The record is a 98-nucleotide RNA sequence from Leersia perrieri, which matches "Small nucleolar RNA Z118/Z121/Z120" in Rfam. A search with the family's covariance model found it, with a score of 75 bits. The source organism's lineage runs through Eukaryota, Viridiplantae, Petrosaviidae, commelinids and Leersia. Rfam 15.1 lists 435 matches to the family in 31 species.
RNA sequence: AUAUUGCUGUGAUGACAUCUACAAGGACGGUAUCUGAGCGAUGGAUCUAUCCUCGUGUGAUUAUGCCUAAACUGAGACUGUAAUUGUCUGAGCAAUUC
Numbered sequence: 001a002u003a004u005u006g007c008u009g010u011g012a013u014g015a016c017a018u019c020u021a022c023a024a025g026g027a028c029g030g031u032a033u034c035u036g037a038g039c040g041a042u043g044g045a046u047c048u049a050u051c052c053u054c055g056u057g058u059g060a061u062u063a064u065g066c067c068u069a070a071a072c073u074g075a076g077a078c079u080g081u082a083a084u085u086g087u088c089u090g091a092g093c094a095a096u097u098c
Stems, first nucleotide, its partner, number of pairs: 003096005038056004043051001
Dot-bracket structure: ..(((((..............................((((.(.......).))))...................................)))))..
The family's RNA type in Rfam is C/D-box small nucleolar RNA.